[Rfam]
Nucleotides: 070
Stems, first nucleotide, its partner, number of pairs: 002067005008061004013056006020050003028047004035042002
Number, partner (000 for none) and nucleotide at each position: 001000a002067g003066a004065c005064a006063c007000c008061c009060u010059u011058a012000u013056g014055g015054g016053g017052c018051a019000a020050g021049a022048c023000u024000u025000g026000u027000u028047u029046c030045a031044g032000u033000g034000g035042g036041c037000u038000u039000u040000g041036g042035u043000g044031c045030u046029g047028a048022g049021u050020c051018u052017g053016c054015c055014c056013c057000c058011u059010g060009a061008g062000u063006g064005u065004g066003u067002c068000c069000c070000u
The record is a 70-nucleotide RNA sequence from Myotis myotis, which matches "mir-9229 microRNA precursor family" in Rfam. The match comes from Rfam's covariance-model search (72 bits). Lineage of the source: Eukaryota > Craniata > Vertebrata > Eutheria > Myotis.